RNA sequence: GACAUCUUGGCCGAGUGGUUUUAAGGCGUUUCCCUGCUAAGGAAAUCCCUUCGGGGGCGCAGGUUCGAAUCCUGCAGAUGUCG
Numbered sequence: 001g002a003c004a005u006c007u008u009g010g011c012c013g014a015g016u017g018g019u020u021u022u023a024a025g026g027c028g029u030u031u032c033c034c035u036g037c038u039a040a041g042g043a044a045a046u047c048c049c050u051u052c053g054g055g056g057g058c059g060c061a062g063g064u065u066c067g068a069a070u071c072c073u074g075c076a077g078a079u080g081u082c083g
Stems, first nucleotide, its partner, number of pairs: 001082007010027003029045005059075005

Description:
tRNA: an 83-nucleotide RNA from Heterostelium album. Rfam classes the family as a transfer RNA. The family has 954 seed sequences and 5,335,975 matches in Rfam 15.1. The match comes from Rfam's covariance-model search (61 bits). Pairs were carried over by alignment from the consensus structure, which is taken from published work. Gene Ontology term of the family: triplet codon-amino acid adaptor activity.